[Rfam]
Shown here is a 265-nucleotide RNA sequence from Priestia taiwanensis, a member of the family "Bacterial large signal recognition particle RNA". Taxonomically the source falls in Priestia (Bacteria, Bacillati, Bacilli, Bacillaceae). The family's RNA type in Rfam is non-coding RNA gene.

RNA sequence: CCGUGCUAGGUGGGGAGGUAGCGGUGCCCUGUAUUCGCAAUCCGCUCUAGCGAGACUGAAUCCCUUCUCGAGGUUAAUGCACUGUAGGGUCUGCCCUAAGCAAGUGGUGUUGACGUCUUGGUCCUACGCAACGAGAACUCAUGAACCCUGUCAGGUCCGGAAGGAAGCAGCAGUAAGUGAGCCCACUCGUGUGCCGUAGGGGAGCCUGGACCGAGCUAACUACUUAGGUAACGCUUAUGGUGGUUAAUCGACGGAAGGUGCACGG
Numbered sequence: 001c002c003g004u005g006c007u008a009g010g011u012g013g014g015g016a017g018g019u020a021g022c023g024g025u026g027c028c029c030u031g032u033a034u035u036c037g038c039a040a041u042c043c044g045c046u047c048u049a050g051c052g053a054g055a056c057u058g059a060a061u062c063c064c065u066u067c068u069c070g071a072g073g074u075u076a077a078u079g080c081a082c083u084g085u086a087g088g089g090u091c092u093g094c095c096c097u098a099a100g101c102a103a104g105u106g107g108u109g110u111u112g113a114c115g116u117c118u119u120g121g122u123c124c125u126a127c128g129c130a131a132c133g134a135g136a137a138c139u140c141a142u143g144a145a146c147c148c149u150g151u152c153a154g155g156u157c158c159g160g161a162a163g164g165a166a167g168c169a170g171c172a173g174u175a176a177g178u179g180a181g182c183c184c185a186c187u188c189g190u191g192u193g194c195c196g197u198a199g200g201g202g203a204g205c206c207u208g209g210a211c212c213g214a215g216c217u218a219a220c221u222a223c224u225u226a227g228g229u230a231a232c233g234c235u236u237a238u239g240g241u242g243g244u245u246a247a248u249c250g251a252c253g254g255a256a257g258g259u260g261c262a263c264g265g
Stems, first nucleotide, its partner, number of pairs: 001265006009057003012030004017025001019023001034054005063258006072249005080242009092230002096227005104220002106217003115211004120206003123200006129191002132189004138181005148173004156165003